[Rfam]
RNA: Histone 3' UTR stem-loop
Organism: Cyprinus carpio
RNA sequence: ACAAAGGCUCUUUUAAGAGCCACCCAGCUUAUCGAUAAAAGAGCGA
Numbered sequence: 001a002c003a004a005a006g007g008c009u010c011u012u013u014u015a016a017g018a019g020c021c022a023c024c025c026a027g028c029u030u031a032u033c034g035a036u037a038a039a040a041g042a043g044c045g046a
Stems, first nucleotide, its partner, number of pairs: 006021006